Background
Rfam assigns this 74-nucleotide RNA from Coregonus sp. 'balchen' to the family "mir-129 microRNA precursor family".
Nucleotides: 074
Stems, first nucleotide, its partner, number of pairs: 007068007015060003020055004025050001027048002
Number, partner (000 for none) and nucleotide at each position: 001000g002000c003000g004000a005000a006000u007068c008067u009066u010065u011064u012063u013062g014000c015060g016059g017058u018000c019000u020055g021054g022053g023052c024000u025050u026000g027048c028047u029000g030000u031000a032000c033000g034000u035000a036000u037000c038000u039000a040000a041000c042000a043000a044000g045000c046000u047028g048027g049000g050025a051000a052023g053022c054021c055020c056000u057000u058017a059016c060015c061000c062013c063012a064011a065010a066009a067008a068007g069000c070000a071000u072000u073000u074000g

NCBI's taxonomy places the organism under Eukaryota, Eumetazoa, Euteleosteomorpha, Salmonidae, Coregonus.
The match comes from Rfam's covariance-model search (88 bits).